[Rfam]
Shown here is a 103-nucleotide sequence from Acidithiobacillus caldus, a member of the family "SAH (S-adenosyl-L-homocysteine) riboswitch aptamer". It scores 52 bits against the family's covariance model. The organism belongs to Acidithiobacillus caldus, within Bacteria. Pairs were carried over by alignment from the consensus structure, which is taken from published work.

RNA sequence: GUGGUCGAGGGGCGCUGCAGCUUCGUCCACCUUCCCCCUGCGCGAAGGUGCCCGAUGAAGUCAGGCUCGAUCCGGUCUUUCCUUCCAACGGCGCUCGCUUUCA
Dot-bracket structure: ..((((((............((((((............................))))))......))))))...............................